[Rfam]
RNA sequence: AAUAGUUUUGGCGAUGGAGUUCGCCAUAAAUCUGCUAUGCAGUGAUGACUCCUACCAGUUU
Numbered sequence: 001a002a003u004a005g006u007u008u009u010g011g012c013g014a015u016g017g018a019g020u021u022c023g024c025c026a027u028a029a030a031u032c033u034g035c036u037a038u039g040c041a042g043u044g045a046u047g048a049c050u051c052c053u054a055c056c057a058g059u060u061u
Stems, first nucleotide, its partner, number of pairs: 010025004016052006032042003
Shown here is a 61-nucleotide sequence from Sporomusaceae bacterium FL31, a member of the family "Fluoride riboswitch aptamer (crcB RNA motif)".
Gene Ontology terms of the family: positive regulation of gene expression and response to fluoride.